[Rfam]
RNA: BsrG
Organism: Metabacillus harenarius
RNA sequence: UAUAAUAGAAUGGCACUAGGUAGGUAAACUCAAGUGUGGUCAGCGUUACCCCGUAAGGAAAGGGGGUGAUGCUUAUGUUGACAGUAUUUCAAACGUUAAUGCUGAUGAUUGCAUUUGCUGGUUUGGUGUUGUCAAUCAUAUCUUUUAGAGACAAAAAAUAACCCACCCUUGAGCUUUCCAGGCGAUAGGUGAGUUAUUUCCAACAUCGCUGAUCCCCUUGAUGGGAACCUAGCUAUUGUAUGACUGUUUGGUGUUAGAGCACCGAAC
Numbered sequence: 001u002a003u004a005a006u007a008g009a010a011u012g013g014c015a016c017u018a019g020g021u022a023g024g025u026a027a028a029c030u031c032a033a034g035u036g037u038g039g040u041c042a043g044c045g046u047u048a049c050c051c052c053g054u055a056a057g058g059a060a061a062g063g064g065g066g067u068g069a070u071g072c073u074u075a076u077g078u079u080g081a082c083a084g085u086a087u088u089u090c091a092a093a094c095g096u097u098a099a100u101g102c103u104g105a106u107g108a109u110u111g112c113a114u115u116u117g118c119u120g121g122u123u124u125g126g127u128g129u130u131g132u133c134a135a136u137c138a139u140a141u142c143u144u145u146u147a148g149a150g151a152c153a154a155a156a157a158a159u160a161a162c163c164c165a166c167c168c169u170u171g172a173g174c175u176u177u178c179c180a181g182g183c184g185a186u187a188g189g190u191g192a193g194u195u196a197u198u199u200c201c202a203a204c205a206u207c208g209c210u211g212a213u214c215c216c217c218u219u220g221a222u223g224g225g226a227a228c229c230u231a232g233c234u235a236u237u238g239u240a241u242g243a244c245u246g247u248u249u250g251g252u253g254u255u256a257g258a259g260c261a262c263c264g265a266a267c
Stems, first nucleotide, its partner, number of pairs: 001240005007234002023210003027206001029173006036166001038163003046068001049066004080133007094107002184195002213226004246267009